Shown here is a 136-nucleotide RNA from Desulfofarcimen acetoxidans, a member of the family "Group II catalytic intron D1-D4-4". Rfam 15.1 lists 840 matches to the family in 506 species. The base pairs follow the family's consensus structure. Its family is annotated with Group II intron splicing in the Gene Ontology. From the family's description: Group II introns are found in rRNA, tRNA and mRNA of organelles in fungi, plants and protists, and also in mRNA in bacteria. The sequence is in the family's curated seed alignment.
[Rfam]
RNA sequence: UAGUCGGUGAAAGUCCGACCGGGAGAAAAGACUUCACUCCCGUAGCUUGAGAGGCACCGUGGAGUGAAAAUGAAACGGUGAAGCCCUUUGACAACACACUCAAGGAGUGUGAGCGAAACUCCAGGUUGUAAUCACA
Numbered sequence: 001u002a003g004u005c006g007g008u009g010a011a012a013g014u015c016c017g018a019c020c021g022g023g024a025g026a027a028a029a030g031a032c033u034u035c036a037c038u039c040c041c042g043u044a045g046c047u048u049g050a051g052a053g054g055c056a057c058c059g060u061g062g063a064g065u066g067a068a069a070a071u072g073a074a075a076c077g078g079u080g081a082a083g084c085c086c087u088u089u090g091a092c093a094a095c096a097c098a099c100u101c102a103a104g105g106a107g108u109g110u111g112a113g114c115g116a117a118a119c120u121c122c123a124g125g126u127u128g129u130a131a132u133c134a135c136a
Base pairs, nucleotide, nucleotide: 020042021041022040023039024038050089051088052087053086054085055080056079057078058077059076060075064071065070096110097109098108099107100106101105113129114128115127
Dot-bracket structure: ...................(((((.............))))).......(((((((((((...((....))...))))))....)))))......((((((...))))))..(((...........))).......